[Rfam]
RNA sequence: UGAUGACAAAUCUCCGGAAUCUCUGUACUUCAUUGAUGAUUCCUUUUGAACCUUAUUUGUUGAUGCUGUCAGAGCUGUUUCAGU
Numbered sequence: 001u002g003a004u005g006a007c008a009a010a011u012c013u014c015c016g017g018a019a020u021c022u023c024u025g026u027a028c029u030u031c032a033u034u035g036a037u038g039a040u041u042c043c044u045u046u047u048g049a050a051c052c053u054u055a056u057u058u059g060u061u062g063a064u065g066c067u068g069u070c071a072g073a074g075c076u077g078u079u080u081c082a083g084u
Stems, first nucleotide, its partner, number of pairs: 002084001004082003
The family of this 84-nucleotide RNA from Cyprinus carpio is "Small nucleolar RNA MBII-202". The family's RNA type in Rfam is C/D-box small nucleolar RNA. Rfam links the family to the GO terms nucleolus and RNA processing. The literature on the family includes a 2001 paper in EMBO J by Huttenhofer et al., "RNomics: an experimental approach that identifies 201 candidates for novel, small, non-messenger RNAs in mouse".